Shown here is a 213-nucleotide sequence from Streptomyces sp. NRRL F-4428, a member of the family "Streptomyces RNA 1601". From the family's description: Identified by deep sequencing of transcriptome at the end of exponential growth phase. Appears longer on northern blot than sequencing transcript. Streptomyces specific.

RNA sequence: AUCGACCGGCCGGAUGCUGUGGCGUCCGGCCCACAAGUGGAGGCUCCGUUCUCCCACCUGACCGCCUUCCGGGGCGGCGGGUCACCGGUCAGGCGGCAUCCAUCGUUCCGUACGGACGAUGGAAAGCCGCCCGAGUCUGCGCCCCGCGUCUUCGCAUGCGGCGGUGCUCCGGUUGUUUUGGAGCCCCUGCCUGUGCCCGGCGGGGCUUUUUUU
Numbered sequence: 001a002u003c004g005a006c007c008g009g010c011c012g013g014a015u016g017c018u019g020u021g022g023c024g025u026c027c028g029g030c031c032c033a034c035a036a037g038u039g040g041a042g043g044c045u046c047c048g049u050u051c052u053c054c055c056a057c058c059u060g061a062c063c064g065c066c067u068u069c070c071g072g073g074g075c076g077g078c079g080g081g082u083c084a085c086c087g088g089u090c091a092g093g094c095g096g097c098a099u100c101c102a103u104c105g106u107u108c109c110g111u112a113c114g115g116a117c118g119a120u121g122g123a124a125a126g127c128c129g130c131c132c133g134a135g136u137c138u139g140c141g142c143c144c145c146g147c148g149u150c151u152u153c154g155c156a157u158g159c160g161g162c163g164g165u166g167c168u169c170c171g172g173u174u175g176u177u178u179u180g181g182a183g184c185c186c187c188u189g190c191c192u193g194u195g196c197c198c199g200g201c202g203g204g205g206c207u208u209u210u211u212u213u
Stems, first nucleotide, its partner, number of pairs: 004090006012027002028083005034060002037057004041052002062077006092131005100122008141206006147199002157195003160191003163187002166184005
Dot-bracket structure: ...((((((..((............))(((((.((.((((((........)).)))).)).((((((....)))))).))))).)))))).(((((...((((((((.......))))))))....))))).........((((((((........((((((((.(((((.........))))).)).))).)))..)).)))))).......